[Rfam]
RNA sequence: GUAUUCCCUGGAGUUCCCUUGACCACUUCAUGAGGGCUUACUUCAUUGUUUGAAGCCCUUCUGAAGUGUUUGGGGGAACUCCAGUGCUCAC
Numbered sequence: 001g002u003a004u005u006c007c008c009u010g011g012a013g014u015u016c017c018c019u020u021g022a023c024c025a026c027u028u029c030a031u032g033a034g035g036g037c038u039u040a041c042u043u044c045a046u047u048g049u050u051u052g053a054a055g056c057c058c059u060u061c062u063g064a065a066g067u068g069u070u071u072g073g074g075g076g077a078a079c080u081c082c083a084g085u086g087c088u089c090a091c
Stems, first nucleotide, its partner, number of pairs: 006086001008084002011081010022071001024068007032060004